The record is a 118-nucleotide sequence from Oryza sativa, which matches "MIR1319 microRNA precursor family" in Rfam. Rfam links the family to the GO terms RISC complex and miRNA-mediated post-transcriptional gene silencing. The sequence is in the family's curated seed alignment. NCBI's taxonomy places the organism under Eukaryota, Spermatophyta, Liliopsida, Oryzoideae, Oryza. The family has 2 seed sequences and 9 matches in Rfam 15.1. Pairs were carried over by alignment from the consensus structure, which was predicted with RNAalifold.
RNA sequence: AUGGGUGUCGGUUUUUAAGAAAAAACCGGCAUCUGUAAUAUAUUAUAGGUGUCGGUUAAUUAAAAACCGAGACCUAUAAUAUAUUAUAAGUGCCGGUUUUUUUAAAACCGACACCUAU
Numbered sequence: 001a002u003g004g005g006u007g008u009c010g011g012u013u014u015u016u017a018a019g020a021a022a023a024a025a026c027c028g029g030c031a032u033c034u035g036u037a038a039u040a041u042a043u044u045a046u047a048g049g050u051g052u053c054g055g056u057u058a059a060u061u062a063a064a065a066a067c068c069g070a071g072a073c074c075u076a077u078a079a080u081a082u083a084u085u086a087u088a089a090g091u092g093c094c095g096g097u098u099u100u101u102u103u104a105a106a107a108c109c110g111a112c113a114c115c116u117a118u
Base pairs, nucleotide, nucleotide: 001118002117003116004115005114006113007112008111009110010109011108013107014106015105016104019103020102021101022100023099024098025097026096027095028094029093030092031091032090034088035087036086037085038084039083040082041081042080043079044078045077046076047075048074049073050072052070053069054068055067056066